[Rfam]
RNA: 7SK RNA
RNA sequence: GUAUGUGAGGGCAAUCUGGCUGUGAGAUCUGAUAUGCUGUUGAUUGCACGGUUUGAUUUGACUGGUCUGGCUAACUUAUGCGGGUGUCCCCUUUCUUCCUCAGCAUUCCGUGUCUGUUCCUCAUGGAGCUGUGUGCUUGGUUAAUGAGGACAGCCUCCCCGACAGACACGGUAUUGUUCACUGGUCAAGGGUGUGUGGUAGCUGUACGCCCCUGCUGGAAGCUCUAAGUAAGCUCAAGGUCCAUUUGUAGCAAACUGUGAAUGCUACACAUUUGUAGGGUAGUCAAACAUCCAAUACUGAAGACACAUCCAAAUGAGAAGCUCCGUGCAGCAUUCUGCCAGU
Numbered sequence: 001g002u003a004u005g006u007g008a009g010g011g012c013a014a015u016c017u018g019g020c021u022g023u024g025a026g027a028u029c030u031g032a033u034a035u036g037c038u039g040u041u042g043a044u045u046g047c048a049c050g051g052u053u054u055g056a057u058u059u060g061a062c063u064g065g066u067c068u069g070g071c072u073a074a075c076u077u078a079u080g081c082g083g084g085u086g087u088c089c090c091c092u093u094u095c096u097u098c099c100u101c102a103g104c105a106u107u108c109c110g111u112g113u114c115u116g117u118u119c120c121u122c123a124u125g126g127a128g129c130u131g132u133g134u135g136c137u138u139g140g141u142u143a144a145u146g147a148g149g150a151c152a153g154c155c156u157c158c159c160c161g162a163c164a165g166a167c168a169c170g171g172u173a174u175u176g177u178u179c180a181c182u183g184g185u186c187a188a189g190g191g192u193g194u195g196u197g198g199u200a201g202c203u204g205u206a207c208g209c210c211c212c213u214g215c216u217g218g219a220a221g222c223u224c225u226a227a228g229u230a231a232g233c234u235c236a237a238g239g240u241c242c243a244u245u246u247g248u249a250g251c252a253a254a255c256u257g258u259g260a261a262u263g264c265u266a267c268a269c270a271u272u273u274g275u276a277g278g279g280u281a282g283u284c285a286a287a288c289a290u291c292c293a294a295u296a297c298u299g300a301a302g303a304c305a306c307a308u309c310c311a312a313a314u315g316a317g318a319a320g321c322u323c324c325g326u327g328c329a330g331c332a333u334u335c336u337g338c339c340a341g342u
Stems, first nucleotide, its partner, number of pairs: 001109001003107001006102006013094002018091002024088002027085005032079002035074001037070003042067004046062001117171002121166002124139003128136002141162002148158003201288001203286001207282001210279006228269002232265001312342001315338001317336001319334001320331003